[Rfam]
RNA sequence: UUCAGUCAAAGGCAAACUUAUUGAAAAAUAAGGACGCAAAGUCAACAGGUCUACGGGAGAUAAACAAAGAAAGAGAAAAAAAUCUGCUAUGAUGGCUGGACUGCCUGG
Dot-bracket structure: ...........((...((((((....))))))...))..((((..((((((....(.((((....................)))).)...)))..)))))))......
Numbered sequence: 001u002u003c004a005g006u007c008a009a010a011g012g013c014a015a016a017c018u019u020a021u022u023g024a025a026a027a028a029u030a031a032g033g034a035c036g037c038a039a040a041g042u043c044a045a046c047a048g049g050u051c052u053a054c055g056g057g058a059g060a061u062a063a064a065c066a067a068a069g070a071a072a073g074a075g076a077a078a079a080a081a082a083u084c085u086g087c088u089a090u091g092a093u094g095g096c097u098g099g100a101c102u103g104c105c106u107g108g
Stems, first nucleotide, its partner, number of pairs: 012037002017032006040102004046098003049093003056087001058085004
c-di-GMP-I riboswitch aptamer: a 108-nucleotide RNA from Sutcliffiella cohnii. Lineage of the source: Bacteria > Bacilli > Caryophanales > Bacillaceae > Sutcliffiella.